[Rfam]
RNA sequence: CUGGAAAAGACAAUGAUGUACUAUCAAGCACAUAUCUGAAGUGAGUGUGUGGACAGCACUAACCUGAGUCUUUUCCAU
Numbered sequence: 001c002u003g004g005a006a007a008a009g010a011c012a013a014u015g016a017u018g019u020a021c022u023a024u025c026a027a028g029c030a031c032a033u034a035u036c037u038g039a040a041g042u043g044a045g046u047g048u049g050u051g052g053a054c055a056g057c058a059c060u061a062a063c064c065u066g067a068g069u070c071u072u073u074u075c076c077a078u
Stems, first nucleotide, its partner, number of pairs: 002077005008071004